The family of this 505-nucleotide RNA from Streptomyces mobaraensis is "Saccharopolyspora sRNA 350". A reference for the family is Liu et al. (2013), "Prediction and characterization of small non-coding RNAs related to secondary metabolites in Saccharopolyspora erythraea", PLoS One. The match comes from Rfam's covariance-model search (105 bits). Rfam links the family to the GO term regulation of secondary metabolite biosynthetic process. Pairs were carried over by alignment from the consensus structure, which was predicted with RNAfold. Rfam classes the family as an antisense RNA.

RNA sequence: GUGGCCGUGUAGUCGUAGCGGGCGUCGGGGUCCAGAAGGGCGUUCUCCCCGAAGUGGCCGCCGUCCGCGAGCACCGCGAGGGAGGUCUCCCCGCCGUACUUGCCCUCGCCGAUCUGGCGGAUACGCCCGUGGGCGAUCAGAUGGAUCCGGUCCGCCGGGCUGCCGCGCUCGACGAUGACCUCACCGGCGGUGAAGUCCCGCUGUUCACAGCGGGCGGCGAGAGCGGUGAGGGCGCUCACGUCGUCGAAGCCCCGCAGCAGGGCCAGUUCGCCGAGUUCCCGGGGGAUCACACGGACCGUGGCACCCUCCUGCACGAACUCGAUGCACCCGUCGCCGACGGUAUGCCGCAGCCGCCGGUUGACCCGGUAGACGCCGCCCUUGGUCUCGACCCAGGGGAGCAUCCGCAGCAACCAGCGGGAGGUGAUUUCCUGCAUCUGCGGCGCGGACUUGGUGGUGUUGGUGAGGUUGCGCGCGGCCGAGGUGCUCAGCGACUGCUGCGGCGCGG
Numbered sequence: 001g002u003g004g005c006c007g008u009g010u011a012g013u014c015g016u017a018g019c020g021g022g023c024g025u026c027g028g029g030g031u032c033c034a035g036a037a038g039g040g041c042g043u044u045c046u047c048c049c050c051g052a053a054g055u056g057g058c059c060g061c062c063g064u065c066c067g068c069g070a071g072c073a074c075c076g077c078g079a080g081g082g083a084g085g086u087c088u089c090c091c092c093g094c095c096g097u098a099c100u101u102g103c104c105c106u107c108g109c110c111g112a113u114c115u116g117g118c119g120g121a122u123a124c125g126c127c128c129g130u131g132g133g134c135g136a137u138c139a140g141a142u143g144g145a146u147c148c149g150g151u152c153c154g155c156c157g158g159g160c161u162g163c164c165g166c167g168c169u170c171g172a173c174g175a176u177g178a179c180c181u182c183a184c185c186g187g188c189g190g191u192g193a194a195g196u197c198c199c200g201c202u203g204u205u206c207a208c209a210g211c212g213g214g215c216g217g218c219g220a221g222a223g224c225g226g227u228g229a230g231g232g233c234g235c236u237c238a239c240g241u242c243g244u245c246g247a248a249g250c251c252c253c254g255c256a257g258c259a260g261g262g263c264c265a266g267u268u269c270g271c272c273g274a275g276u277u278c279c280c281g282g283g284g285g286a287u288c289a290c291a292c293g294g295a296c297c298g299u300g301g302c303a304c305c306c307u308c309c310u311g312c313a314c315g316a317a318c319u320c321g322a323u324g325c326a327c328c329c330g331u332c333g334c335c336g337a338c339g340g341u342a343u344g345c346c347g348c349a350g351c352c353g354c355c356g357g358u359u360g361a362c363c364c365g366g367u368a369g370a371c372g373c374c375g376c377c378c379u380u381g382g383u384c385u386c387g388a389c390c391c392a393g394g395g396g397a398g399c400a401u402c403c404g405c406a407g408c409a410a411c412c413a414g415c416g417g418g419a420g421g422u423g424a425u426u427u428c429c430u431g432c433a434u435c436u437g438c439g440g441c442g443c444g445g446a447c448u449u450g451g452u453g454g455u456g457u458u459g460g461u462g463a464g465g466u467u468g469c470g471c472g473c474g475g476c477c478g479a480g481g482u483g484c485u486c487a488g489c490g491a492c493u494g495c496u497g498c499g500g501c502g503c504g505g
Stems, first nucleotide, its partner, number of pairs: 007389002011385002014382001018328001021325001025322005031316002038310003042306001049301003054233002059228006065111001067109002077102004082097001084095003118221001122217001126213002130209001131206005138200001140198001143197002150191001153189006161177001164174002234296001236294002240290002243287003250282002254278001256277003260271001262269001330341003353377001355375003363369001391431007399423003403418001405416001407415001437476002440473001442471003446467001447465003451461002477504002481501002484499001486497003

Lineage of the source: Bacteria > Bacillati > Actinomycetes > Kitasatosporales > Streptomyces.